[Rfam]
The record is a 176-nucleotide RNA from Paraferrimonas haliotis, which matches "Lysine riboswitch aptamer" in Rfam.

RNA sequence: AGCAGAAGUAGAGGUUGCAUUAACUAAGAGUAGCAAGCGUUAGGGUGAGACCGAUGACCGUUUGCCAAAGGAGUUAAUGCCGAAAUAUCACUGGCACUCAAACCUUGAUGUUGGGGCUGCGUCCGAAUAGGGGCAGCACUGCCAUAGUAAACUCACUAUGGAGCGCUACUUUAAUC
Numbered sequence: 001a002g003c004a005g006a007a008g009u010a011g012a013g014g015u016u017g018c019a020u021u022a023a024c025u026a027a028g029a030g031u032a033g034c035a036a037g038c039g040u041u042a043g044g045g046u047g048a049g050a051c052c053g054a055u056g057a058c059c060g061u062u063u064g065c066c067a068a069a070g071g072a073g074u075u076a077a078u079g080c081c082g083a084a085a086u087a088u089c090a091c092u093g094g095c096a097c098u099c100a101a102a103c104c105u106u107g108a109u110g111u112u113g114g115g116g117c118u119g120c121g122u123c124c125g126a127a128u129a130g131g132g133g134c135a136g137c138a139c140u141g142c143c144a145u146a147g148u149a150a151a152c153u154c155a156c157u158a159u160g161g162a163g164c165g166c167u168a169c170u171u172u173a174a175u176c
Base pairs, nucleotide, nucleotide: 006171007170008169009168010167011166017080018079019078020077021076022075023074024073025072033065034064035063036062037061038060039059084112085111086110087109088108089107090106093103113140114139116137117136118135119134120133122131123130142161143160144159145158146157147156148155
Lineage of the source: Bacteria > Pseudomonadota > Gammaproteobacteria > Alteromonadales > Paraferrimonas.